About this RNA:
Rfam assigns this 143-nucleotide RNA sequence from Plasmodium falciparum to the family "small nucleolar RNA snoR31". The organism belongs to Plasmodium falciparum, within Eukaryota. For this family Rfam cites "Structural RNAs of known and unknown function identified in malaria parasites by comparative genomics and RNA analysis" (Chakrabarti et al., RNA, 2007). The base pairs follow the family's consensus structure, which was predicted with RNAalifold.
RNA sequence: GUUAUAUAUUAAUUUAUUGUGUUAUCCCUAGCGGGCAAGAUUUUUUCAAAGAAAGAAAAAGAUCGUAAUCGUCUAGGUAAUAAAAAUUUAAAAAAAAAAAAAUGUUGUAAGACUUAGUUUUGCCCCCCUCCUUUUUUUAAUAC
Numbered sequence: 001g002u003u004a005u006a007u008a009u010u011a012a013u014u015u016a017u018u019g020u021g022u023u024a025u026c027c028c029u030a031g032c033g034g035g036c037a038a039g040a041u042u043u044u045u046u047c048a049a050a051g052a053a054a055g056a057a058a059a060a061g062a063u064c065g066u067a068a069u070c071g072u073c074u075a076g077g078u079a080a081u082a083a084a085a086a087u088u089u090a091a092a093a094a095a096a097a098a099a100a101a102a103u104g105u106u107g108u109a110a111g112a113c114u115u116a117g118u119u120u121u122g123c124c125c126c127c128c129u130c131c132u133u134u135u136u137u138u139a140a141u142a143c
Base pairs, nucleotide, nucleotide: 027077028076029075030074031073032071033070034069039064040063041062042060043059044058045057046056047055091138092137093136094135095134096133097132100129104126107123108122109121110120